[Rfam]
RNA sequence: GUCUUAUCAAGAGAAGCCGAGGGAAUGGCCCGAUGACGCUUCAGCAACCUCUGUUUAAAACAGAAAGGUGCUAAUUCCUACAGAAGCUCCAUUAUGCUUCUGAUAGAUAAGAG
Numbered sequence: 001g002u003c004u005u006a007u008c009a010a011g012a013g014a015a016g017c018c019g020a021g022g023g024a025a026u027g028g029c030c031c032g033a034u035g036a037c038g039c040u041u042c043a044g045c046a047a048c049c050u051c052u053g054u055u056u057a058a059a060a061c062a063g064a065a066a067g068g069u070g071c072u073a074a075u076u077c078c079u080a081c082a083g084a085a086g087c088u089c090c091a092u093u094a095u096g097c098u099u100c101u102g103a104u105a106g107a108u109a110a111g112a113g
Stems, first nucleotide, its partner, number of pairs: 002112007013042005021031003027078002043072004048068002050064004076105001081102006
Rfam assigns this 113-nucleotide RNA from Kurthia sp. 11kri321 to the family "SAM riboswitch aptamer (S box leader)". The SAM riboswitch is found upstream of a number of genes which code for proteins involved in methionine or cysteine biosynthesis in Gram-positive bacteria.